This 119-nucleotide RNA from Pipistrellus kuhlii belongs to the Rfam family "Small nucleolar RNA SNORA29". Pairs were carried over by alignment from the consensus structure, which was predicted with PFOLD. On this family, see Huttenhofer et al., EMBO J 2001: "RNomics: an experimental approach that identifies 201 candidates for novel, small, non-messenger RNAs in mouse". Its family is annotated with nucleolus and RNA processing in the Gene Ontology. Its Rfam clan is "SNORA20 clan". Rfam classes the family as an H/ACA-box small nucleolar RNA. It scores 81 bits against the family's covariance model.
[Rfam]
RNA sequence: UUUCCCAUUUGACUGCCACGUUUUCUCCCAAUAGAUUCCAGUGGCUAUGCUUGUGGGAUAGAUCAGCACUGCUAUGAUCUGUGUGUCCUCCUUCUAUAUGAAAAAACAAACAAACAAAA
Dot-bracket structure: ...((((........((((.....................)))).........)))).............(..(.((..............)).)...........)............